[Rfam]
RNA sequence: GAGCCAGCUCAGCCCAGCGUUUCCAUUGACCAAAGCAUUGCUUAGAUCCCCUAAUUGCUUCCAGCGGUUUGAGACCCGCGGGCGCUGCCUGGAUUUGAU
Number, nucleotide and partner (000 for none) at each position: 001g000002a094003g000004c092005c091006a090007g089008c000009u000010c000011a000012g083013c082014c081015c080016a000017g079018c078019g077020u000021u000022u000023c000024c000025a000026u072027u071028g070029a069030c000031c000032a000033a000034a000035g000036c000037a000038u000039u000040g000041c000042u000043u000044a000045g000046a000047u000048c000049c000050c000051c000052u000053a000054a000055u000056u000057g000058c000059u000060u000061c000062c000063a000064g000065c000066g000067g000068u000069u029070u028071g027072a026073g000074a000075c000076c000077c019078g018079c017080g015081g014082g013083c012084g000085c000086u000087g000088c000089c007090u006091g005092g004093a000094u002095u000096u000097g000098a000099u000
Vault RNA: a 99-nucleotide RNA sequence from Podarcis muralis. The base pairs follow the family's consensus structure, which is taken from published work. The organism belongs to Podarcis, within Eukaryota. By type it is a non-coding RNA gene. A search with the family's covariance model found it, with a score of 39 bits.